[Rfam]
RNA sequence: AGAGGCUCAUCGCGGCCGGGCGCAGAAUGCUUGCCUCAUUGCUGUGGUGAUGAAGCAAGCAUUCCGCCAGGCCGCUCAUGCUGCCCGC
Numbered sequence: 001a002g003a004g005g006c007u008c009a010u011c012g013c014g015g016c017c018g019g020g021c022g023c024a025g026a027a028u029g030c031u032u033g034c035c036u037c038a039u040u041g042c043u044g045u046g047g048u049g050a051u052g053a054a055g056c057a058a059g060c061a062u063u064c065c066g067c068c069a070g071g072c073c074g075c076u077c078a079u080g081c082u083g084c085c086c087g088c
Stems, first nucleotide, its partner, number of pairs: 004085003012075006020068001022067002025064010038051005
The record is an 88-nucleotide sequence from Cnephaeus nilssonii, which matches "mir-9195 microRNA precursor family" in Rfam. The family's consensus secondary structure was predicted with RNAalifold. Lineage of the source: Eukaryota > Bilateria > Tetrapoda > Amniota > Cnephaeus. Rfam links the family to the GO terms RISC complex and miRNA-mediated post-transcriptional gene silencing.